About this RNA: The record is an 80-nucleotide sequence from Liquorilactobacillus ghanensis, which matches "Group II catalytic intron D1-D4-1" in Rfam. Its family is annotated with Group II intron splicing in the Gene Ontology. The organism belongs to Liquorilactobacillus ghanensis, within Bacteria. The match comes from Rfam's covariance-model search (64 bits). Rfam describes the family as follows. Group II introns are found in rRNA, tRNA and mRNA of organelles in fungi, plants and protists, and also in mRNA in bacteria.

RNA sequence: CAAGCUGGCCAGUGAUAGCUGGUUGAAUCAAGCAGAAGUCAGCCGAAGUCAUAGUAGUGGCACACAGUGCCACGAAGGAC
Numbered sequence: 001c002a003a004g005c006u007g008g009c010c011a012g013u014g015a016u017a018g019c020u021g022g023u024u025g026a027a028u029c030a031a032g033c034a035g036a037a038g039u040c041a042g043c044c045g046a047a048g049u050c051a052u053a054g055u056a057g058u059g060g061c062a063c064a065c066a067g068u069g070c071c072a073c074g075a076a077g078g079a080c
Stems, first nucleotide, its partner, number of pairs: 001025002004023006011016001039046002048080003057073006